[Rfam]
RNA: Bacterial large subunit ribosomal RNA, nucleotides 1295 to 1677
RNA sequence: GAUAAAAUAAGUGAAAAACUUAUUCGCCGUAAGACUAAGGGUUCCUGAUCAACGUUAAUCGGAUCAGGGUUAGUCGGGUCCUUAGGCAAACCCGAAAGGGGCAGCUGAUGGCAAACUGGUUAAUAUUCCAGUACCCGCAUUUGUUUCGAUGGGGUAACGUGUUCGUGAAAGGUCCGCGCAGUUACGGAAUACUGCGUUAAAGCCAGUAGAUAUAUUUUUGGCAGGCAAAUCCGCCAGGAAUGUCGAAGGUGAUAGUACUUGAAAGCUUCGGCCGGAUAGAUAGUGACCCUAAACAUAGCACCGAGAAAAACCUCUAAGGUUAGGCAAAUGCGGCCCGUACCGUAAACCGACACAGGUAGUCGAGAUGAGUAUUCUAAGGCGCU
Numbered sequence: 001g002a003u004a005a006a007a008u009a010a011g012u013g014a015a016a017a018a019c020u021u022a023u024u025c026g027c028c029g030u031a032a033g034a035c036u037a038a039g040g041g042u043u044c045c046u047g048a049u050c051a052a053c054g055u056u057a058a059u060c061g062g063a064u065c066a067g068g069g070u071u072a073g074u075c076g077g078g079u080c081c082u083u084a085g086g087c088a089a090a091c092c093c094g095a096a097a098g099g100g101g102c103a104g105c106u107g108a109u110g111g112c113a114a115a116c117u118g119g120u121u122a123a124u125a126u127u128c129c130a131g132u133a134c135c136c137g138c139a140u141u142u143g144u145u146u147c148g149a150u151g152g153g154g155u156a157a158c159g160u161g162u163u164c165g166u167g168a169a170a171g172g173u174c175c176g177c178g179c180a181g182u183u184a185c186g187g188a189a190u191a192c193u194g195c196g197u198u199a200a201a202g203c204c205a206g207u208a209g210a211u212a213u214a215u216u217u218u219u220g221g222c223a224g225g226c227a228a229a230u231c232c233g234c235c236a237g238g239a240a241u242g243u244c245g246a247a248g249g250u251g252a253u254a255g256u257a258c259u260u261g262a263a264a265g266c267u268u269c270g271g272c273c274g275g276a277u278a279g280a281u282a283g284u285g286a287c288c289c290u291a292a293a294c295a296u297a298g299c300a301c302c303g304a305g306a307a308a309a310a311c312c313u314c315u316a317a318g319g320u321u322a323g324g325c326a327a328a329u330g331c332g333g334c335c336c337g338u339a340c341c342g343u344a345a346a347c348c349g350a351c352a353c354a355g356g357u358a359g360u361c362g363a364g365a366u367g368a369g370u371a372u373u374c375u376a377a378g379g380c381g382c383u
Base pairs, nucleotide, nucleotide: 006024007023008022009021010020011019025381026380027379028378033361034360035359036358039341040340044068045067046066047065048064049063053061054060075337076336077335078334080111081110085106086105087104091100092099093098115132116131117130118129119128135333136332137331138330139329140328141327142326143325144324145323146319147318151314152313153312154311155310159301160300161299162298165294166293171288172287173286174285176197177196178195179194180193181192198255202250203249204248209244210243211242216239217238218237219236220235221234222233224232225231257281259279260278261277347356348355363375364374365373
Dot-bracket structure: .....((((((.......))))))((((....((((..((...((((((...((.....)).))))))......((((.((...(((...(((....)))...)))...))...(((((........)))))..(((((((((((((...(((((...((((..((....((((.((((((..........))))))(...(((....(((....(((((((.((.....)))))))))..)))...)))....).(.(((...............))).)...))))....))...))))........)))))...))...)))))))))))))))..)).....((......)).)))).(((.......)))..))))..